[Rfam]
The family of this 113-nucleotide RNA from Solanum lycopersicum is "MIR398 microRNA precursor family". Its family is annotated with RISC complex and miRNA-mediated post-transcriptional gene silencing in the Gene Ontology. On this family, see Jones-Rhoades and Bartel, Mol Cell 2004: "Computational identification of plant microRNAs and their targets, including a stress-induced miRNA". Rfam 15.1 lists 627 matches to the family in 211 species.

RNA sequence: AGGUAUUCAACAGGGGCAACUUGAGAUCACAUGUUGUCAUUUUUUUCUUUUUGAUUUGAUUCGAUGAAUCAGUAUCUCAACAUGUGUUCUCAGGUUACCCCUGUUGAAUUAGU
Numbered sequence: 001a002g003g004u005a006u007u008c009a010a011c012a013g014g015g016g017c018a019a020c021u022u023g024a025g026a027u028c029a030c031a032u033g034u035u036g037u038c039a040u041u042u043u044u045u046u047c048u049u050u051u052u053g054a055u056u057u058g059a060u061u062c063g064a065u066g067a068a069u070c071a072g073u074a075u076c077u078c079a080a081c082a083u084g085u086g087u088u089c090u091c092a093g094g095u096u097a098c099c100c101c102u103g104u105u106g107a108a109u110u111a112g113u
Base pairs, nucleotide, nucleotide: 007107008106011103012102013101014100016098018096019095023091024090025089026088028086029085030084031083032082033081034080